[Rfam]
RNA: cow-rumen-2 RNA
RNA sequence: CGCAGAGGGUUCUGAUAACAAAGAACCUAGAUAGCCGCAUCGGUAUUAUAGGAUGUAGUCGGUGAGCCGGAAUGCCUGCAUCGUAAGCCUAUAAGUAAAUCCCACAG
Numbered sequence: 001c002g003c004a005g006a007g008g009g010u011u012c013u014g015a016u017a018a019c020a021a022a023g024a025a026c027c028u029a030g031a032u033a034g035c036c037g038c039a040u041c042g043g044u045a046u047u048a049u050a051g052g053a054u055g056u057a058g059u060c061g062g063u064g065a066g067c068c069g070g071a072a073u074g075c076c077u078g079c080a081u082c083g084u085a086a087g088c089c090u091a092u093a094a095g096u097a098a099a100u101c102c103c104a105c106a107g
Stems, first nucleotide, its partner, number of pairs: 002079001007028007040104001042102002044099001046094007060083004069076002